[Rfam]
RNA sequence: CCCCAUGCUGACGCGUAGGGCUACAUACUACCGUCGCUUUGCGACU
Numbered sequence: 001c002c003c004c005a006u007g008c009u010g011a012c013g014c015g016u017a018g019g020g021c022u023a024c025a026u027a028c029u030a031c032c033g034u035c036g037c038u039u040u041g042c043g044a045c046u
Base pairs, nucleotide, nucleotide: 001020002019003018005016006015007014008013033045034044035043036042037041
RNA: Acido-Lenti-1 RNA
Organism: Neorhodopirellula pilleata